RNA: Selenocysteine transfer RNA
Organism: Aphanomyces invadans
RNA sequence: GCAAACGUGAUCUUGGCUGGUGCUGAGUACGGUCUUCAAAACCGUGGGCCAUUAACGUGGCAGGGGUUCGAUUCCUCCUCGAUUGC
Numbered sequence: 001g002c003a004a005a006c007g008u009g010a011u012c013u014u015g016g017c018u019g020g021u022g023c024u025g026a027g028u029a030c031g032g033u034c035u036u037c038a039a040a041a042c043c044g045u046g047g048g049c050c051a052u053u054a055a056c057g058u059g060g061c062a063g064g065g066g067u068u069c070g071a072u073u074c075c076u077c078c079u080c081g082a083u084u085g086c
Base pairs, nucleotide, nucleotide: 001086002085003084004083006081007080009078012027013026014025015024016023017022028046029045030044031043032042033041048061049060050059051058052057063077064076065075066074